[Rfam]
RNA sequence: GUAGGCAAUUAGCAGCCUUGUGACAUCAGACAAAGAAGUCACAGGGCAGUAUCUGAGGGUCUAU
Numbered sequence: 001g002u003a004g005g006c007a008a009u010u011a012g013c014a015g016c017c018u019u020g021u022g023a024c025a026u027c028a029g030a031c032a033a034a035g036a037a038g039u040c041a042c043a044g045g046g047c048a049g050u051a052u053c054u055g056a057g058g059g060u061c062u063a064u
Base pairs, nucleotide, nucleotide: 001064002063003062004061005060006059009056012053015047016046017045018044019043020042021041022040023039024038026030
RNA: MAT2A 3'UTR stem loop B